[Rfam]
RNA sequence: CUGAGAGAGUAGACUCUCUACGGUUACGACACAACCGCUCCUGGGGUGCAAUUCCCCCCCUACCCUUGGGGUCACAAGGACCU
Numbered sequence: 001c002u003g004a005g006a007g008a009g010u011a012g013a014c015u016c017u018c019u020a021c022g023g024u025u026a027c028g029a030c031a032c033a034a035c036c037g038c039u040c041c042u043g044g045g046g047u048g049c050a051a052u053u054c055c056c057c058c059c060c061u062a063c064c065c066u067u068g069g070g071g072u073c074a075c076a077a078g079g080a081c082c083u
Stems, first nucleotide, its partner, number of pairs: 005018005012049001021037005043057004058070002064079005

The record is an 83-nucleotide sequence from Ampelovirus sacchari, which matches "Tymovirus/Pomovirus/Furovirus tRNA-like 3' UTR element" in Rfam. The organism belongs to Ampelovirus sacchari, within Viruses. A search with the family's covariance model found it, with a score of 58 bits. Rfam classes the family as a cis-regulatory element. Its family is annotated with regulation of translation in the Gene Ontology.